The record is a 587-nucleotide part of an RNA from Endozoicomonas montiporae, which matches "Bacterial large subunit ribosomal RNA" in Rfam. Its Rfam clan is "LSU clan". The match comes from Rfam's covariance-model search (2834 bits).

RNA sequence: UCCGCGGCUAGACGGAAAGACCCCGUGAACCUUUACUACAGCUUCACAGUGGAUCUUGAUGUUGCUUGUGUAGGAUAGGUGGGAGGCUUUGAAGUGUGGACGCCAGUCUGCAUGGAGCCAACCUUGAAAUACCACCCUGGCAAUAUUGAGGUUCUAACCCGGGUCCCUUAUCGGGAUCGGGGACAUUGUGUGGUGGGUAGUUUGACUGGGGCGGUCUCCUCCCAAAGAGUAACGGAGGAGCACGAAGGUUGGCUAAGCACGGUCGGACAUCGUGCGGUUAGUGUAAAGGCACAAGCCAGCUUGACUGCGAGACGUACAUGUCGAGCAGGUACGAAAGUAGGUCUUAGUGAUCCGGUGGUUCUGAAUGGAAGGGCCAUCGCUCAACGGAUAAAAGGUACUCCGGGGAUAACAGGCUGAUACCGCCCAAGAGUUCACAUCGACGGCGGUGUUUGGCACCUCGAUGUCGGCUCAUCACAUCCUGGGGCUGAAGCCGGUCCCAAGGGUAUGGCUGUUCGCCAUUUAAAGUGGUACGCGAGCUGGGUUUAGAACGUCGUGAGACAGUUCGGUCCCUAUCUGCCGUGGACGUU
Numbered sequence: 001u002c003c004g005c006g007g008c009u010a011g012a013c014g015g016a017a018a019g020a021c022c023c024c025g026u027g028a029a030c031c032u033u034u035a036c037u038a039c040a041g042c043u044u045c046a047c048a049g050u051g052g053a054u055c056u057u058g059a060u061g062u063u064g065c066u067u068g069u070g071u072a073g074g075a076u077a078g079g080u081g082g083g084a085g086g087c088u089u090u091g092a093a094g095u096g097u098g099g100a101c102g103c104c105a106g107u108c109u110g111c112a113u114g115g116a117g118c119c120a121a122c123c124u125u126g127a128a129a130u131a132c133c134a135c136c137c138u139g140g141c142a143a144u145a146u147u148g149a150g151g152u153u154c155u156a157a158c159c160c161g162g163g164u165c166c167c168u169u170a171u172c173g174g175g176a177u178c179g180g181g182g183a184c185a186u187u188g189u190g191u192g193g194u195g196g197g198u199a200g201u202u203u204g205a206c207u208g209g210g211g212c213g214g215u216c217u218c219c220u221c222c223c224a225a226a227g228a229g230u231a232a233c234g235g236a237g238g239a240g241c242a243c244g245a246a247g248g249u250u251g252g253c254u255a256a257g258c259a260c261g262g263u264c265g266g267a268c269a270u271c272g273u274g275c276g277g278u279u280a281g282u283g284u285a286a287a288g289g290c291a292c293a294a295g296c297c298a299g300c301u302u303g304a305c306u307g308c309g310a311g312a313c314g315u316a317c318a319u320g321u322c323g324a325g326c327a328g329g330u331a332c333g334a335a336a337g338u339a340g341g342u343c344u345u346a347g348u349g350a351u352c353c354g355g356u357g358g359u360u361c362u363g364a365a366u367g368g369a370a371g372g373g374c375c376a377u378c379g380c381u382c383a384a385c386g387g388a389u390a391a392a393a394g395g396u397a398c399u400c401c402g403g404g405g406a407u408a409a410c411a412g413g414c415u416g417a418u419a420c421c422g423c424c425c426a427a428g429a430g431u432u433c434a435c436a437u438c439g440a441c442g443g444c445g446g447u448g449u450u451u452g453g454c455a456c457c458u459c460g461a462u463g464u465c466g467g468c469u470c471a472u473c474a475c476a477u478c479c480u481g482g483g484g485c486u487g488a489a490g491c492c493g494g495u496c497c498c499a500a501g502g503g504u505a506u507g508g509c510u511g512u513u514c515g516c517c518a519u520u521u522a523a524a525g526u527g528g529u530a531c532g533c534g535a536g537c538u539g540g541g542u543u544u545a546g547a548a549c550g551u552c553g554u555g556a557g558a559c560a561g562u563u564c565g566g567u568c569c570c571u572a573u574c575u576g577c578c579g580u581g582g583a584c585g586u587u
Stems, first nucleotide, its partner, number of pairs: 001583008010575003014570002022404004027400002029396005035201004042193002045190004051154016068137001078136005085119003094113008158181003162178006204216004217239006240385001242342002248300006254280002257275006281290002305328004311322003330339003353379007361372002413454003417451001418448007428438002465540001466538004470532001471529005478503002481498006505519005546564004550559003

The source organism's lineage runs through Bacteria, Pseudomonadati, Gammaproteobacteria, Endozoicomonadaceae and Endozoicomonas.